The record is a 103-nucleotide sequence from Bacillus sp. T33-2, which matches "S10-Clostridia ribosomal protein leader" in Rfam.
A search with the family's covariance model found it, with a score of 38 bits.
A reference for the family is Eckert and Weinberg (2020), "Discovery of 20 novel ribosomal leader candidates in bacteria and archaea", BMC Microbiol.
The family's consensus secondary structure is taken from published work.
[Rfam]
RNA sequence: UGACUGCGAUGAUGCGGAAGGUUGCUGACACACCCGGCCGCUUUGCCAUGGCGAGUGUGUGGGAAAUUUUCGCGGAGAAUGUCUAUUCUAAAAUAGGCGAAAA
Dot-bracket structure: .............(((.((((...((..................................))....)))))))......(.((...(((.....))).)).).
Numbered sequence: 001u002g003a004c005u006g007c008g009a010u011g012a013u014g015c016g017g018a019a020g021g022u023u024g025c026u027g028a029c030a031c032a033c034c035c036g037g038c039c040g041c042u043u044u045g046c047c048a049u050g051g052c053g054a055g056u057g058u059g060u061g062g063g064a065a066a067u068u069u070u071c072g073c074g075g076a077g078a079a080u081g082u083c084u085a086u087u088c089u090a091a092a093a094u095a096g097g098c099g100a101a102a103a
Stems, first nucleotide, its partner, number of pairs: 014073003018070004025062002080102001082100002087097003